Rfam assigns this 47-nucleotide RNA sequence to the family "ssNA-helicase RNA".
The family's RNA type in Rfam is small RNA.
RNA sequence: UCGCCUAGGCUAGUAUUACCCUAGGCGAACAUAGGUAGCGUGUAGCA
Numbered sequence: 001u002c003g004c005c006u007a008g009g010c011u012a013g014u015a016u017u018a019c020c021c022u023a024g025g026c027g028a029a030c031a032u033a034g035g036u037a038g039c040g041u042g043u044a045g046c047a
Base pairs, nucleotide, nucleotide: 001028002027003026004025005024006023007022008021009020